[Rfam]
RNA: ZMP/ZTP riboswitch aptamer (pfl RNA motif)
RNA sequence: AGCACGGUACGCAACUGGCGAUAGGUGCGCUCAACACGACGGUCUCUGGCCUCGUCGGAGCGCAACCGACGUGGCCCCUGGAACCGGCGUUGACCGCCCUACCCUCCAGAUCACCACGGGGAAGCGUACCGCCUCCGGAUCAUUGGACCCGAAGGUGUUCAGCCGUUCGCCUGGGCAGCCCUU
Numbered sequence: 001a002g003c004a005c006g007g008u009a010c011g012c013a014a015c016u017g018g019c020g021a022u023a024g025g026u027g028c029g030c031u032c033a034a035c036a037c038g039a040c041g042g043u044c045u046c047u048g049g050c051c052u053c054g055u056c057g058g059a060g061c062g063c064a065a066c067c068g069a070c071g072u073g074g075c076c077c078c079u080g081g082a083a084c085c086g087g088c089g090u091u092g093a094c095c096g097c098c099c100u101a102c103c104c105u106c107c108a109g110a111u112c113a114c115c116a117c118g119g120g121g122a123a124g125c126g127u128a129c130c131g132c133c134u135c136c137g138g139a140u141c142a143u144u145g146g147a148c149c150c151g152a153a154g155g156u157g158u159u160c161a162g163c164c165g166u167u168c169g170c171c172u173g174g175g176c177a178g179c180c181c182u183u
Stems, first nucleotide, its partner, number of pairs: 005131008015121002017171005025117003160178001162176003